[Rfam]
RNA sequence: UGUUAAAAAUUUCAUUUAUUUCUAUUAUUAAAAACUGGUUACUGUACGUCAGCAUGAAGUACACGUGGCACGCCGUUUGUCACUGUUUGGUUAUUCUGUCCACCAUGCCAAUUUUUAACAGUAGAAAUGGAUGAACUUUUCAACA
Numbered sequence: 001u002g003u004u005a006a007a008a009a010u011u012u013c014a015u016u017u018a019u020u021u022c023u024a025u026u027a028u029u030a031a032a033a034a035c036u037g038g039u040u041a042c043u044g045u046a047c048g049u050c051a052g053c054a055u056g057a058a059g060u061a062c063a064c065g066u067g068g069c070a071c072g073c074c075g076u077u078u079g080u081c082a083c084u085g086u087u088u089g090g091u092u093a094u095u096c097u098g099u100c101c102a103c104c105a106u107g108c109c110a111a112u113u114u115u116u117a118a119c120a121g122u123a124g125a126a127a128u129g130g131a132u133g134a135a136c137u138u139u140u141c142a143a144c145a
Stems, first nucleotide, its partner, number of pairs: 002144003006140004011135006018128009028118006